About this RNA:
MIR1120/MIR1122 microRNA precursor family: an 87-nucleotide RNA sequence from Triticum aestivum. A reference for the family is Yao et al. (2007), "Cloning and characterization of microRNAs from wheat (Triticum aestivum L.)", Genome Biol. Its family is annotated with RISC complex and miRNA-mediated post-transcriptional gene silencing in the Gene Ontology. Pairs were carried over by alignment from the consensus structure, which was predicted with RNAalifold.
[Rfam]
RNA sequence: AUACUCCCUCCAUCCCAAAAUGUAAGACGUUUUUUGACUCUAGUGUAGUGUCAAAAAACGUCUUAUAUUAUGGGACGGAUGGAGUAU
Number, nucleotide and partner (000 for none) at each position: 001a000002u000003a085004c084005u083006c000007c081008c000009u079010c078011c077012a000013u075014c074015c073016c072017a071018a000019a069020a068021u067022g066023u065024a064025a063026g062027a061028c060029g059030u058031u057032u056033u055034u054035u053036g052037a051038c050039u000040c048041u047042a000043g000044u000045g000046u000047a041048g040049u000050g038051u037052c036053a035054a034055a033056a032057a031058a030059c029060g028061u027062c026063u025064u024065a023066u022067a021068u020069u019070a000071u017072g016073g015074g014075a013076c000077g011078g010079a009080u000081g007082g000083a005084g004085u003086a000087u000